A member of the RNA family "Makes More Granules Regulator RNA (mmgR)" from Sphingomonas metalli, 74 nucleotides long. SuhB later renamed mmgR (makes more granules regulator) was a putative non-coding RNA found multiple times in the Agrobacterium tumefaciens genome and related alpha-proteobacteria. Its family is annotated with protein binding, response to nitrogen compound and DNA-templated transcription, termination in the Gene Ontology.

RNA sequence: AGAGCGUGCCUUUCAGGCAUCCUCUCCUAAAAACUUUUCAAGGCCGGCUCGUCCGGCCUUUUUUUUUGGUCCCG
Dot-bracket structure: .......((((...))))......................(((((((.....)))))))...............